[Rfam]
Nucleotides: 114
Stems, first nucleotide, its partner, number of pairs: 003070009012060002016029003031056006039048002078109014
Number, partner (000 for none) and nucleotide at each position: 001000c002000a003070c004069c005068c006067g007066u008065c009064g010063u011062g012060g013059c014000a015000a016029g017028c018027g019000u020000u021000c022000a023000g024000g025000g026000g027018c028017g029016c030000a031056g032055g033054c034053u035052g036051g037000a038000a039048u040047u041000g042000g043000a044000a045000c046000a047040g048039g049000g050000g051036c052035c053034a054033g055032c056031c057000a058000u059013g060012c061000g062011c063010a064009u065008g066007a067006c068005g069004g070003g071000g072000a073000u074000g075000c076000c077000g078109a079108g080107g081106g082105g083104c084103c085102g086101a087100u088099a089098g090097u091096c092000g093000g094000g095000g096091g097090a098089c099088u100087a101086u102085c103084g104083g105082c106081c107080c108079c109078u110000u111000u112000u113000u114000u